This 150-nucleotide RNA from Dyella choica belongs to the Rfam family "FMN riboswitch aptamer (RFN element)".
RNA sequence: AAACGUCUUCAGGGCGGGGUGUAAUUCCCCACCGGCGGUAGGGGUCUUGAAGGGCCCGAGCCCGCGAGCGCUUCCGGCUCCGCCGGAAGGUCAGCAGAUCCGGUCGAAUGCCGGGGCCGACGGUCAUAGUCCGGAUGAAAGAAGACGGCA
Numbered sequence: 001a002a003a004c005g006u007c008u009u010c011a012g013g014g015c016g017g018g019g020u021g022u023a024a025u026u027c028c029c030c031a032c033c034g035g036c037g038g039u040a041g042g043g044g045u046c047u048u049g050a051a052g053g054g055c056c057c058g059a060g061c062c063c064g065c066g067a068g069c070g071c072u073u074c075c076g077g078c079u080c081c082g083c084c085g086g087a088a089g090g091u092c093a094g095c096a097g098a099u100c101c102g103g104u105c106g107a108a109u110g111c112c113g114g115g116g117c118c119g120a121c122g123g124u125c126a127u128a129g130u131c132c133g134g135a136u137g138a139a140a141g142a143a144g145a146c147g148g149c150a
Base pairs, nucleotide, nucleotide: 004147005146006145007144008143009142010141017029018028019027031130032129033119034118035065036064037063038062060117061116068095069094099115100114101113102112103111121133122132123131
The RFN element is a highly conserved domain that is found frequently in the 5'-untranslated regions of prokaryotic mRNAs that encode for flavin mononucleotide (FMN) biosynthesis and transport proteins. This element is a metabolite-dependent riboswitch that directly binds FMN in the absence of proteins.